This 71-nucleotide RNA sequence from Theobroma cacao belongs to the Rfam family "Small nucleolar RNA snoR60". The family's RNA type in Rfam is C/D-box small nucleolar RNA. The match comes from Rfam's covariance-model search (84 bits). Taxonomically the source falls in Theobroma (Eukaryota, Viridiplantae, Mesangiospermae, Gunneridae). The family is grouped with related families in Rfam's "SNORD101 clan". On this family, see Barneche et al., J Biol Chem 2000: "Fibrillarin genes encode both a conserved nucleolar protein and a novel small nucleolar RNA involved in ribosomal RNA methylation in Arabidopsis thaliana".
RNA sequence: AAGCAAAGGAUGAGGUACUCGGAUUCCCCUUCAAGACAUCAUGGGUGAUGCAAUACCGAGUUUCUGAUGCU
Numbered sequence: 001a002a003g004c005a006a007a008g009g010a011u012g013a014g015g016u017a018c019u020c021g022g023a024u025u026c027c028c029c030u031u032c033a034a035g036a037c038a039u040c041a042u043g044g045g046u047g048a049u050g051c052a053a054u055a056c057c058g059a060g061u062u063u064c065u066g067a068u069g070c071u
Base pairs, nucleotide, nucleotide: 002071003070004069005068